[Rfam]
RNA sequence: UUUGUAAUGUGUGCAUAGUUUUCAUCUAUGUUUGCUAGCAGUAUCCAUGUUUUGCAUUCAGAUCUUGCUAUCCACACAGUCAUCAUGCAGCCAAAGAGUAACUUGGGAUCAUAGUCCUGGUCUAGUGUUGUCUUUUCUGACACAUCUGCCACUGGCCAGCCUCCAAAUUCCUACACAUAA
Numbered sequence: 001u002u003u004g005u006a007a008u009g010u011g012u013g014c015a016u017a018g019u020u021u022u023c024a025u026c027u028a029u030g031u032u033u034g035c036u037a038g039c040a041g042u043a044u045c046c047a048u049g050u051u052u053u054g055c056a057u058u059c060a061g062a063u064c065u066u067g068c069u070a071u072c073c074a075c076a077c078a079g080u081c082a083u084c085a086u087g088c089a090g091c092c093a094a095a096g097a098g099u100a101a102c103u104u105g106g107g108a109u110c111a112u113a114g115u116c117c118u119g120g121u122c123u124a125g126u127g128u129u130g131u132c133u134u135u136u137c138u139g140a141c142a143c144a145u146c147u148g149c150c151a152c153u154g155g156c157c158a159g160c161c162u163c164c165a166a167a168u169u170c171c172u173a174c175a176c177a178u179a180a
Stems, first nucleotide, its partner, number of pairs: 013088004029078003033074002036070006043063003048056003104173005117159006124153004129144003133140002
Rfam assigns this 180-nucleotide RNA sequence from Microcebus murinus to the family "Small nucleolar RNA SNORA23". By type it is an H/ACA-box small nucleolar RNA.